RNA sequence: AAUAGAUUUUGUUAGGUGAGGCUCCUAUACAAACAUAGGCUACUGCCCAGAAAUGUCGAGAGACGCCAAUGGGUAGAACAAGGAUAGUCGAGCGAAGGCUUUCCAUAAGGUAGCUAAAAGUAAUUCUACUUUUUACGUUGUAUAGUGUUGAAACUGAAACUGAAAAAUAAACG
Numbered sequence: 001a002a003u004a005g006a007u008u009u010u011g012u013u014a015g016g017u018g019a020g021g022c023u024c025c026u027a028u029a030c031a032a033a034c035a036u037a038g039g040c041u042a043c044u045g046c047c048c049a050g051a052a053a054u055g056u057c058g059a060g061a062g063a064c065g066c067c068a069a070u071g072g073g074u075a076g077a078a079c080a081a082g083g084a085u086a087g088u089c090g091a092g093c094g095a096a097g098g099c100u101u102u103c104c105a106u107a108a109g110g111u112a113g114c115u116a117a118a119a120g121u122a123a124u125u126c127u128a129c130u131u132u133u134u135a136c137g138u139u140g141u142a143u144a145g146u147g148u149u150g151a152a153a154c155u156g157a158a159a160c161u162g163a164a165a166a167a168u169a170a171a172c173g
Base pairs, nucleotide, nucleotide: 006168007167008166009165010164011160012159013096015155016154017153020149021148022147025145026144027143028142029141030140031139032138039114040113041112042111043110045074046073047072048071049070054065055064056063057062082104083103084102087099088098089097116133117132118131119130120129
The family of this 173-nucleotide RNA from Listeria fleischmannii is "M-box riboswitch aptamer (ykoK leader)". Gene Ontology terms of the family: response to magnesium ion and regulation of gene expression. NCBI's taxonomy places the organism under Bacteria, Bacillota, Bacilli, Listeriaceae, Listeria fleischmannii.